The family of this 81-nucleotide RNA from Soehngenia longivitae is "S10-Clostridia ribosomal protein leader". The match comes from Rfam's covariance-model search (47 bits). It is annotated as a cis-regulatory leader. Pairs were carried over by alignment from the consensus structure, which is taken from published work.
RNA sequence: GCAUUGCGAUGAGGUAAGAGGUUGCUGCAGUUUGUGCAGGUAAUUUUUACUGAGAAUGUCCGGUUUCAAAUCGGGCGACUU
Number, nucleotide and partner (000 for none) at each position: 001g000002c000003a000004u000005u000006g000007c000008g000009a000010u000011g000012a000013g000014g050015u049016a048017a000018g047019a046020g045021g044022u000023u000024g000025c039026u038027g037028c036029a035030g000031u000032u000033u000034g000035u029036g028037c027038a026039g025040g000041u000042a000043a000044u021045u020046u019047u018048u016049a015050c014051u000052g000053a000054g000055a000056a000057u000058g079059u078060c077061c000062g000063g076064u075065u074066u073067c000068a000069a000070a000071u000072c000073g066074g065075g064076c063077g060078a059079c058080u000081u000